[Rfam]
RNA: U1 spliceosomal RNA
Organism: Chara braunii
RNA sequence: AUACUUACCUGGCCGGGGCGUAUCCGUGACCAAGAACGCUGACAGCCUAGGUUGCAGGGUCUUCCAUUGCACUGUGGGACUCGCCUGGCCUAAGUCACACCCACGGAGUUGUUACUACGGUACUAUUUCUGGUAUAGGGGGCAGGCGUACGCGCGGCCCCCAA
Numbered sequence: 001a002u003a004c005u006u007a008c009c010u011g012g013c014c015g016g017g018g019c020g021u022a023u024c025c026g027u028g029a030c031c032a033a034g035a036a037c038g039c040u041g042a043c044a045g046c047c048u049a050g051g052u053u054g055c056a057g058g059g060u061c062u063u064c065c066a067u068u069g070c071a072c073u074g075u076g077g078g079a080c081u082c083g084c085c086u087g088g089c090c091u092a093a094g095u096c097a098c099a100c101c102c103a104c105g106g107a108g109u110u111g112u113u114a115c116u117a118c119g120g121u122a123c124u125a126u127u128u129c130u131g132g133u134a135u136a137g138g139g140g141g142c143a144g145g146c147g148u149a150c151g152c153g154c155g156g157c158c159c160c161c162a163a
Base pairs, nucleotide, nucleotide: 012121013120014119015118016048017047018046019045023042024041026039027038049091050090051089052088055087057084059082062079063078064077065076093116094115095114096111097109098108100106101105137161138160139159140158145154146153147152